[Rfam]
RNA: Flavo-1 RNA
RNA sequence: GUUUUGCGUGAGGGAUGGAAGCGAUAUCCUUUUUUUGUUUGGAGCGGCAAAGCUGCUGCAAACAAAAAAAGAUACAGCGGACAGCCCGACCUGAG
Numbered sequence: 001g002u003u004u005u006g007c008g009u010g011a012g013g014g015a016u017g018g019a020a021g022c023g024a025u026a027u028c029c030u031u032u033u034u035u036u037g038u039u040u041g042g043a044g045c046g047g048c049a050a051a052g053c054u055g056c057u058g059c060a061a062a063c064a065a066a067a068a069a070a071g072a073u074a075c076a077g078c079g080g081a082c083a084g085c086c087c088g089a090c091c092u093g094a095g
Base pairs, nucleotide, nucleotide: 012087013086014085016083017082021078022077026073027072028071032068033067034066035065036064037063038062039061040060041059